The family of this 120-nucleotide RNA from Peptostreptococcus russellii is "FMN riboswitch aptamer (RFN element)". Taxonomically the source falls in Peptostreptococcus (Bacteria, Bacillota, Clostridia, Peptostreptococcaceae).
[Rfam]
RNA sequence: AUAGGUCUUCGGGGGUGGGUGAGAUUCCCUACCGGCGGUAUAGCCCGCGAGUUACGUCAAGUAGCAUGAUUUGGUGAGAUUCCAAAGCCGACAGUAAAGUCUGGAUGAGAGAAGAAUAUU
Dot-bracket structure: ...(.(((((......(((.......))).[[((((((....[[))))....(..........).....(((((.......)))))]])).(((....]]))).......))))).)...